The family of this 75-nucleotide RNA sequence from Alligator sinensis is "Mammalian CPEB3 ribozyme".
The match comes from Rfam's covariance-model search (36 bits).

RNA sequence: GUUGCAAGUUUGAGUCCAUAGCAAAAGUGCUCAUAGUGUGGCCUGUCAGAGUCCAGUGAAUCUGUGAUUUCUGCU
Number, nucleotide and partner (000 for none) at each position: 001g000002u000003u000004g000005c000006a000007a000008g000009u000010u000011u000012g043013a000014g000015u000016c041017c040018a000019u000020a075021g074022c073023a072024a000025a070026a069027g039028u038029g037030c000031u000032c000033a000034u000035a000036g000037u029038g028039u027040g017041g016042c000043c012044u000045g000046u000047c064048a063049g062050a061051g000052u059053c058054c000055a000056g000057u000058g053059a052060a000061u050062c049063u048064g047065u000066g000067a000068u000069u026070u025071c000072u023073g022074c021075u020